Small nucleolar RNA Z107/R87: a 108-nucleotide RNA from Kingdonia uniflora. Pairs were carried over by alignment from the consensus structure, which was predicted with RNAfold.
RNA sequence: GAUCACAGUGAUGACUCCAAAAAUUCAAGCUCAAUAGACCGCAUUAUAGGUUUCUUUCUAUGAAUAGGAGAAAUUUGAAUGUCGAUAAUCCCGCUAAACGGAAUGAUU
Numbered sequence: 001g002a003u004c005a006c007a008g009u010g011a012u013g014a015c016u017c018c019a020a021a022a023a024u025u026c027a028a029g030c031u032c033a034a035u036a037g038a039c040c041g042c043a044u045u046a047u048a049g050g051u052u053u054c055u056u057u058c059u060a061u062g063a064a065u066a067g068g069a070g071a072a073a074u075u076u077g078a079a080u081g082u083c084g085a086u087a088a089u090c091c092c093g094c095u096a097a098a099c100g101g102a103a104u105g106a107u108u
Base pairs, nucleotide, nucleotide: 001108002107003106004105005104